[Rfam]
Shown here is a 132-nucleotide sequence, a member of the family "Small nucleolar RNA SNORA71".
RNA sequence: CCCUGUAUUCGAAAGUGAUUGUGGGCUGCCUGUGCCCUGGUCAUUGAUACUGCAGGGAGAGGAUUUGGAAAGCCUUUCCCCGUGUUUGGAGGAUCCACACUCGUCCUUGCCAAACCCUGGUGCUUUCCCACA
Numbered sequence: 001c002c003c004u005g006u007a008u009u010c011g012a013a014a015g016u017g018a019u020u021g022u023g024g025g026c027u028g029c030c031u032g033u034g035c036c037c038u039g040g041u042c043a044u045u046g047a048u049a050c051u052g053c054a055g056g057g058a059g060a061g062g063a064u065u066u067g068g069a070a071a072g073c074c075u076u077u078c079c080c081c082g083u084g085u086u087u088g089g090a091g092g093a094u095c096c097a098c099a100c101u102c103g104u105c106c107u108u109g110c111c112a113a114a115c116c117c118u119g120g121u122g123c124u125u126u127c128c129c130a131c132a
Stems, first nucleotide, its partner, number of pairs: 001057007009049001014045008023037004067128007084115005090108003
Overview
Gene Ontology terms of the family: nucleolus and RNA processing. The family's RNA type in Rfam is H/ACA-box small nucleolar RNA. The literature on the family includes a 1997 paper in Genes Dev by Ganot et al., "The family of box ACA small nucleolar RNAs is defined by an evolutionarily conserved secondary structure and ubiquitous sequence elements essential for RNA accumulation". About the family: The members of this family belong to the H/ACA class of snoRNAs which bind a number of proteins (including dyskerin, Gar1p and Nop10p) to form snoRNP complexes. This class of snoRNAs are thought to guide the sites of modification of uridines to pseudouridines by forming direct base pairing interactions with substrate RNAs. This family includes U71 (SNORA71), ACA39 (SNORA39) and ACA60 (SNORA60). The base pairs follow the family's consensus structure, which was predicted with PFOLD.